A member of the RNA family "Purine riboswitch aptamer" from Vagococcus zengguangii, 98 nucleotides long. Gene Ontology term of the family: purine nucleobase biosynthetic process.
RNA sequence: ACAAUCCAAUUUGAUACAACUUAUAUAUGGUCAUAAUACGGUUGACCGUUUCUACCUAACCCCGUAAAGGUUAGACUAUAAGUGGAAAAUUCGUCGAC
Numbered sequence: 001a002c003a004a005u006c007c008a009a010u011u012u013g014a015u016a017c018a019a020c021u022u023a024u025a026u027a028u029g030g031u032c033a034u035a036a037u038a039c040g041g042u043u044g045a046c047c048g049u050u051u052c053u054a055c056c057u058a059a060c061c062c063c064g065u066a067a068a069g070g071u072u073a074g075a076c077u078a079u080a081a082g083u084g085g086a087a088a089a090u091u092c093g094u095c096g097a098c
Base pairs, nucleotide, nucleotide: 019083020082021081022080023079024078025077029047030046031045032044033043056074057073058072059071060070061069
It scores 67 bits against the family's covariance model.